[Rfam]
Nucleotides: 160
Base pairs, nucleotide, nucleotide: 002019004017006015028069030067031066032065033060034059035058036057037056038055041052042051043050044049083096084095085094098123101122108115109114127153128152129151130150131149132148
Number, partner (000 for none) and nucleotide at each position: 001000c002019a003000a004017u005000a006015u007000c008000u009000c010000c011000a012000u013000u014000c015006a016000g017004a018000g019002u020000g021000u022000c023000c024000c025000u026000a027000c028069u029000c030067u031066g032065a033060u034059g035058u036057g037056c038055a039000u040000u041052u042051c043050u044049g045000g046000u047000a048000a049044c050043g051042g052041a053000u054000u055038u056037g057036u058035g059034c060033a061000a062000a063000g064000c065032u066031u067030a068000u069028a070000g071000g072000a073000a074000a075000a076000a077000g078000c079000g080000a081000a082000a083096u084095a085094g086000u087000a088000u089000c090000g091000a092000a093000c094085c095084u096083a097000a098123c099000g100000c101122u102000a103000c104000a105000a106000a107000u108115u109114c110000g111000c112000c113000a114109g115108g116000g117000a118000a119000a120000u121000g122101g123098g124000c125000a126000c127153a128152u129151g130150g131149a132148g133000a134000a135000u136000c137000a138000a139000a140000a141000g142000g143000u144000g145000a146000a147000g148132c149131u150130u151129c152128g153127u154000u155000u156000a157000g158000g159000g160000g
Record summary: This 160-nucleotide RNA from Methanogenium marinum belongs to the Rfam family "Group II catalytic intron D1-D4-7". A search with the family's covariance model found it, with a score of 40 bits. The pairing is the family consensus, mapped onto this sequence. Rfam's curators write: Group II introns are found in rRNA, tRNA and mRNA of organelles in fungi, plants and protists, and also in mRNA in bacteria. The source organism's lineage runs through Archaea, Methanobacteriati, Methanobacteriota, Methanomicrobiales and Methanogenium.